A member of the RNA family "mir-5 microRNA precursor family" from Drosophila erecta, 64 nucleotides long. Its family is annotated with RISC complex and miRNA-mediated post-transcriptional gene silencing in the Gene Ontology. On this family, see Stark et al., Genome Res 2007: "Systematic discovery and characterization of fly microRNAs using 12 Drosophila genomes".
[Rfam]
RNA sequence: UAAAAGGAACGAUCGUUGUGAUAUGCGUUGUUCCCUAACAUAUCACAGUGAUUUUCCUUUAUAA
Numbered sequence: 001u002a003a004a005a006g007g008a009a010c011g012a013u014c015g016u017u018g019u020g021a022u023a024u025g026c027g028u029u030g031u032u033c034c035c036u037a038a039c040a041u042a043u044c045a046c047a048g049u050g051a052u053u054u055u056c057c058u059u060u061a062u063a064a
Stems, first nucleotide, its partner, number of pairs: 003060007011053015